[Rfam]
This 219-nucleotide sequence from Petasospora fabianii belongs to the Rfam family "Small nucleolar RNA snR35".
Nucleotides: 219
Base pairs, nucleotide, nucleotide: 013021024096025095026094028091029090030089031088046082047081048080049079051078052077053076054075055074056073132210134208135207136206139202140201141200142199143198146197147196148195149194150193151192152191153190156185157184158183160173161172163170164169
Number, partner (000 for none) and nucleotide at each position: 001000u002000u003000u004000u005000c006000u007000u008000u009000u010000c011000u012000u013021u014000a015000g016000u017000g018000c019000g020000g021013a022000c023000a024096a025095c026094c027000a028091g029090g030089a031088c032000u033000a034000u035000c036000a037000u038000a039000c040000c041000g042000u043000g044000u045000u046082g047081c048080u049079u050000a051078g052077u053076c054075c055074c056073g057000u058000g059000c060000c061000g062000c063000u064000u065000u066000u067000u068000c069000a070000c071000g072000g073056u074055g075054g076053g077052a078051c079049a080048a081047g082046c083000g084000u085000c086000a087000a088031g089030u090029c091028c092000u093000c094026g095025g096024u097000g098000a099000g100000a101000u102000c103000g104000a105000u106000u107000u108000g109000c110000g111000u112000c113000u114000u115000c116000g117000c118000c119000g120000a121000c122000g123000u124000u125000g126000u127000a128000c129000u130000c131000a132210u133000c134208u135207u136206a137000g138000u139202g140201c141200c142199c143198u144000u145000u146197u147196g148195u149194c150193c151192a152191g153190u154000g155000g156185a157184u158183g159000u160173c161172a162000u163170g164169a165000c166000u167000a168000c169164u170163c171000u172161u173160g174000c175000a176000g177000g178000u179000a180000g181000u182000u183158c184157g185156u186000g187000u188000g189000u190153g191152c192151u193150g194149g195148g196147c197146a198143a199142g200141g201140g202139c203000u204000g205000g206136u207135a208134g209000a210132g211000u212000a213000u214000a215000c216000a217000a218000a219000u

Its Rfam clan is "SNORA13 clan". It is annotated as an H/ACA-box small nucleolar RNA.